[Rfam]
RNA: mir-3 microRNA precursor family
RNA sequence: CUUUUGGGAUGCAUUCUGUACAGUAAUGUUGACUCUUGUAAAACCAUCACUGGGCAAAGUGUGUCUCAAAAU
Numbered sequence: 001c002u003u004u005u006g007g008g009a010u011g012c013a014u015u016c017u018g019u020a021c022a023g024u025a026a027u028g029u030u031g032a033c034u035c036u037u038g039u040a041a042a043a044c045c046a047u048c049a050c051u052g053g054g055c056a057a058a059g060u061g062u063g064u065c066u067c068a069a070a071a072u
Base pairs, nucleotide, nucleotide: 005068006067007066008065009064010063011062012061013060014059017056018055019054021052022051023050024049